Overview: The family of this 117-nucleotide sequence from Abyssicoccus albus is "Ribosomal protein L20 leader". The organism belongs to Abyssicoccus, within Bacteria. This family is a putative r-protein leader autoregulatory structure found in B. subtilis and other low-GC Gram-positive bacteria. It is located in the 5' untranslated regions of mRNAs encoding initiation factor 3 followed by ribosomal proteins L35 and L20 (infC-rpmI-rplT). A Rho-independent transcription terminator structure that is probably involved in regulation is included at the 3' end. A search with the family's covariance model found it, with a score of 74 bits. The family's consensus secondary structure was predicted with CMfinder.
Nucleotides: 117
Base pairs, nucleotide, nucleotide: 011026012025013024014023015022016021028057029056030055035050036049037048038046039045081104082103083102084101085100086099087098088097089096090095
Number, partner (000 for none) and nucleotide at each position: 001000a002000a003000g004000a005000a006000c007000a008000a009000g010000a011026a012025g013024a014023g015022g016021c017000g018000c019000c020000c021016g022015c023014u024013u025012c026011u027000c028057a029056c030055c031000u032000u033000a034000c035050g036049a037048c038046g039045c040000a041000u042000u043000a044000a045039g046038c047000a048037g049036u050035u051000a052000u053000a054000a055030g056029g057028u058000u059000u060000a061000u062000a063000c064000g065000u066000g067000a068000a069000g070000u071000a072000u073000u074000a075000u076000g077000a078000g079000u080000g081104a082103a083102c084101g085100g086099g087098u088097g089096u090095a091000u092000a093000u094000g095090u096089a097088u098087g099086c100085c101084c102083g103082u104081u105000c106000a107000c108000u109000u110000u111000u112000g113000u114000u115000u116000u117000g